Overview: This 102-nucleotide RNA sequence from Moheibacter lacus belongs to the Rfam family "SAM riboswitch aptamer (S box leader)". Taxonomically the source falls in Moheibacter (Bacteria, Pseudomonadati, Flavobacteriia, Flavobacteriales). It scores 82 bits against the family's covariance model.

[Rfam]
RNA sequence: ACCUUAUUGAGAAAGGUGGAGGGAUUAGGCCCUGUGAAACCUUAGCAACCCGUUGAGACGGGUGCUACAUCCUAUCUCGGUUCAGCCGAGAAAAGAUAAGGA
Numbered sequence: 001a002c003c004u005u006a007u008u009g010a011g012a013a014a015g016g017u018g019g020a021g022g023g024a025u026u027a028g029g030c031c032c033u034g035u036g037a038a039a040c041c042u043u044a045g046c047a048a049c050c051c052g053u054u055g056a057g058a059c060g061g062g063u064g065c066u067a068c069a070u071c072c073u074a075u076c077u078c079g080g081u082u083c084a085g086c087c088g089a090g091a092a093a094a095g096a097u098a099a100g101g102a
Stems, first nucleotide, its partner, number of pairs: 002101007013043005021032003026074004044066004049062005070094001075091006